The record is a 227-nucleotide part of an RNA from Lachnellula suecica, which matches "Eukaryotic large subunit ribosomal RNA" in Rfam.

RNA sequence: CGCUUGCAACCAGACUCGCAUUCCGUCGAUCAUCCGGAGUUCUCUCCGGUGCACUCGGCGGUAUUCGGGCCAGCAUCGGUUUGGGUGGUGGGAUAAAGGCCUUGGGAAUGUAGCUCCUUUCGGGGAGUGUUAUAGCCCUCGGUGCAAUGCCGCCUACCUGGACCGAGGACCGCGCUUCGGCUAGGAUGCUGGCGUAAUGGUUGUAAGCGACCCGUCUUGAAACACGG
Numbered sequence: 001c002g003c004u005u006g007c008a009a010c011c012a013g014a015c016u017c018g019c020a021u022u023c024c025g026u027c028g029a030u031c032a033u034c035c036g037g038a039g040u041u042c043u044c045u046c047c048g049g050u051g052c053a054c055u056c057g058g059c060g061g062u063a064u065u066c067g068g069g070c071c072a073g074c075a076u077c078g079g080u081u082u083g084g085g086u087g088g089u090g091g092g093a094u095a096a097a098g099g100c101c102u103u104g105g106g107a108a109u110g111u112a113g114c115u116c117c118u119u120u121c122g123g124g125g126a127g128u129g130u131u132a133u134a135g136c137c138c139u140c141g142g143u144g145c146a147a148u149g150c151c152g153c154c155u156a157c158c159u160g161g162a163c164c165g166a167g168g169a170c171c172g173c174g175c176u177u178c179g180g181c182u183a184g185g186a187u188g189c190u191g192g193c194g195u196a197a198u199g200g201u202u203g204u205a206a207g208c209g210a211c212c213c214g215u216c217u218u219g220a221a222a223c224a225c226g227g
Stems, first nucleotide, its partner, number of pairs: 001209012017067002020064002023061002071191007212227004